[Rfam]
RNA sequence: GGCCUCCCUCUGUGGGGUGAUUGAUCACAGGGCUCCGUAAUCAAUGGCUCCGCAGAGGGAGGCC
Numbered sequence: 001g002g003c004c005u006c007c008c009u010c011u012g013u014g015g016g017g018u019g020a021u022u023g024a025u026c027a028c029a030g031g032g033c034u035c036c037g038u039a040a041u042c043a044a045u046g047g048c049u050c051c052g053c054a055g056a057g058g059g060a061g062g063c064c
Base pairs, nucleotide, nucleotide: 001064002063003062004061005060006059007058008057009056010055011054012053013052014051015050016049017048018047020045021044022043023042024041025040027038028037030035

The record is a 64-nucleotide sequence from Myotis davidii, which matches "mir-9242 microRNA precursor family" in Rfam. Taxonomically the source falls in Myotis (Eukaryota, Chordata, Teleostomi, Amniota). Its family is annotated with miRNA-mediated post-transcriptional gene silencing and RISC complex in the Gene Ontology. It scores 71 bits against the family's covariance model. Pairs were carried over by alignment from the consensus structure, which was predicted with RNAalifold.